A member of the RNA family "Manganese Mn2+ riboswitch aptamer (yybP-ykoY)" from Brochothrix campestris, 177 nucleotides long. Lineage of the source: Bacteria > Bacillota > Bacilli > Brochothrix > Brochothrix campestris. A reference for the family is Argaman et al. (2001), "Novel small RNA-encoding genes in the intergenic regions of Escherichia coli", Curr Biol.
RNA sequence: UUUUGUGUCAAAGGGGAGUAGCGUUGCUUACUGUUGAUAACAGUAAGCAAGAUAAAGUCGUCAAUACAUGGAUUAAUUCCAUCGGUUUUAUCAACAUGUGUCAUGUCAGCGAGACCUUUGUCCACACUUAUUUAAGGUGGGCAAAGGGCUUGUUUUUUUGUUUAAAAAAAAGGGGUC
Numbered sequence: 001u002u003u004u005g006u007g008u009c010a011a012a013g014g015g016g017a018g019u020a021g022c023g024u025u026g027c028u029u030a031c032u033g034u035u036g037a038u039a040a041c042a043g044u045a046a047g048c049a050a051g052a053u054a055a056a057g058u059c060g061u062c063a064a065u066a067c068a069u070g071g072a073u074u075a076a077u078u079c080c081a082u083c084g085g086u087u088u089u090a091u092c093a094a095c096a097u098g099u100g101u102c103a104u105g106u107c108a109g110c111g112a113g114a115c116c117u118u119u120g121u122c123c124a125c126a127c128u129u130a131u132u133u134a135a136g137g138u139g140g141g142c143a144a145a146g147g148g149c150u151u152g153u154u155u156u157u158u159u160g161u162u163u164a165a166a167a168a169a170a171a172g173g174g175g176u177c
Base pairs, nucleotide, nucleotide: 025049026048027047028046029045030044051092052091053090054089055088056087057086058085059084060083068082069081070080071079072078098177
Rfam's curators write: This RNA was originally discovered in E. coli during a large scale screen and was named SraF. The family was later found to exist upstream of related families of protein genes in many bacteria, including the the yybP and ykoK genes in B. subtilis. The match comes from Rfam's covariance-model search (57 bits).